[Rfam]
Description: This 162-nucleotide RNA sequence from Paenibacillus dendrobii belongs to the Rfam family "c-di-AMP riboswitch aptamer (ydaO/yuaA leader)".
RNA sequence: UUGUCUAUAUCGCUGAAUUUCCGCGGAUCGCGGAAAGCGGGGGAACCGGCCGUGACGAUAUGUUGAUGAUCGUCACAUGGGGUGAAUCUCAUGCCAAUGAGUAGGGCUACUCUUAAGUCCGAAUCCGUCAGCUAACCUCGCAAGCGUAACAAGAGAGGCAAC
Numbered sequence: 001u002u003g004u005c006u007a008u009a010u011c012g013c014u015g016a017a018u019u020u021c022c023g024c025g026g027a028u029c030g031c032g033g034a035a036a037g038c039g040g041g042g043g044a045a046c047c048g049g050c051c052g053u054g055a056c057g058a059u060a061u062g063u064u065g066a067u068g069a070u071c072g073u074c075a076c077a078u079g080g081g082g083u084g085a086a087u088c089u090c091a092u093g094c095c096a097a098u099g100a101g102u103a104g105g106g107c108u109a110c111u112c113u114u115a116a117g118u119c120c121g122a123a124u125c126c127g128u129c130a131g132c133u134a135a136c137c138u139c140g141c142a143a144g145c146g147u148a149a150c151a152a153g154a155g156a157g158g159c160a161a162c
Base pairs, nucleotide, nucleotide: 011146012145013144014143018036019035020034021033022032023031024030025029037141038140039139040138041137042136047079048078080126081125082124088101089100090099091098104120105119106118107117
Notes
Taxonomically the source falls in Paenibacillus (Bacteria, Bacillota, Bacilli, Paenibacillaceae).